[Rfam]
RNA sequence: CCAUUCCUUCGGGGUAGGGUGUAAUUCCCGACCGGCGGUAUAGCCCGCGAGCUUUUUAAGCAGAUUCGGUGUAAUUCCGAAGCCGACAGUUACAGUCUGGAUGAGAGAGGGAAAAG
Numbered sequence: 001c002c003a004u005u006c007c008u009u010c011g012g013g014g015u016a017g018g019g020u021g022u023a024a025u026u027c028c029c030g031a032c033c034g035g036c037g038g039u040a041u042a043g044c045c046c047g048c049g050a051g052c053u054u055u056u057u058a059a060g061c062a063g064a065u066u067c068g069g070u071g072u073a074a075u076u077c078c079g080a081a082g083c084c085g086a087c088a089g090u091u092a093c094a095g096u097c098u099g100g101a102u103g104a105g106a107g108a109g110g111g112a113a114a115a116g
Stems, first nucleotide, its partner, number of pairs: 004113007017029003031096002033085002035048004043083002051061003065081005087099003

The family of this 116-nucleotide sequence from Heliorestis acidaminivorans is "FMN riboswitch aptamer (RFN element)".
The base pairs follow the family's consensus structure, which is taken from published work.
Taxonomically the source falls in Heliorestis (Bacteria, Bacillota, Clostridia, Eubacteriales).